[Rfam]
RNA: Plastid-ycf2 5UTR RNA
Organism: Macleaya cordata
RNA sequence: GUGCAUCCAGCAGAAUUGUAGCCGCGAAUUUGGCAAUUAUGAGUUGGGUGCUUUUAAUCAUUCAGUCAUGGAUGC
Numbered sequence: 001g002u003g004c005a006u007c008c009a010g011c012a013g014a015a016u017u018g019u020a021g022c023c024g025c026g027a028a029u030u031u032g033g034c035a036a037u038u039a040u041g042a043g044u045u046g047g048g049u050g051c052u053u054u055u056a057a058u059c060a061u062u063c064a065g066u067c068a069u070g071g072a073u074g075c
Base pairs, nucleotide, nucleotide: 003075004074005073006072007071008070010025011024013022039069040068041067043066044065045064046063047062048061049060050059
Dot-bracket structure: ..((((((.((.(........).)).............(((.((((((((........)))))))))))))))))